[Rfam]
RNA: Purine riboswitch aptamer
RNA sequence: GAACGAACUUUAUAUUACUUUCGUAUAACCUCGCAGAUAGCCGAUUGACGGUUAGAACGGGCGAGGGUUUCUACAGGAAGCCGUAACUUCCUAACUACGAUAUAGAGAAUUCAUUAC
Numbered sequence: 001g002a003a004c005g006a007a008c009u010u011u012a013u014a015u016u017a018c019u020u021u022c023g024u025a026u027a028a029c030c031u032c033g034c035a036g037a038u039a040g041c042c043g044a045u046u047g048a049c050g051g052u053u054a055g056a057a058c059g060g061g062c063g064a065g066g067g068u069u070u071c072u073a074c075a076g077g078a079a080g081c082c083g084u085a086a087c088u089u090c091c092u093a094a095c096u097a098c099g100a101u102a103u104a105g106a107g108a109a110u111u112c113a114u115u116a117c
Base pairs, nucleotide, nucleotide: 019102021100022099023098024097025096029066030065031064032063033062034061075092076091077090078089079088080087